[Rfam]
RNA sequence: UUGCCAGUCAGGAUCCUGUCUGGAGUCCAGAUCUUAGCUGGAUCCAGGCUCUGGCCAGGGGCCUGACUUCAAA
Numbered sequence: 001u002u003g004c005c006a007g008u009c010a011g012g013a014u015c016c017u018g019u020c021u022g023g024a025g026u027c028c029a030g031a032u033c034u035u036a037g038c039u040g041g042a043u044c045c046a047g048g049c050u051c052u053g054g055c056c057a058g059g060g061g062c063c064u065g066a067c068u069u070c071a072a073a
Base pairs, nucleotide, nucleotide: 007067008066009065011063012062014059017057018056020054021053022052023051024050027041028040029039030038
RNA: mir-344 microRNA precursor family
Organism: Nannospalax galili